[Rfam]
RNA sequence: UAGUGUUACAGCUCUUUUAGAAUUUGUCAGCAGGCCUUCCGGUAUUUGCCGGAAAGCCCCC
Numbered sequence: 001u002a003g004u005g006u007u008a009c010a011g012c013u014c015u016u017u018u019a020g021a022a023u024u025u026g027u028c029a030g031c032a033g034g035c036c037u038u039c040c041g042g043u044a045u046u047u048g049c050c051g052g053a054a055a056g057c058c059c060c061c
Stems, first nucleotide, its partner, number of pairs: 033058003037054007
Dot-bracket structure: ................................(((.(((((((....))))))).)))...
Description: U7 small nuclear RNA: a 61-nucleotide RNA sequence from Rhinopithecus roxellana. NCBI's taxonomy places the organism under Eukaryota, Dipnotetrapodomorpha, Simiiformes, Colobinae, Rhinopithecus. Animal histone pre-mRNAs are spliced by a different mechanism than nuclear pre-mRNAs and self-splicing introns. This processing involves the U7 snRNP, which contains only one RNA species: U7.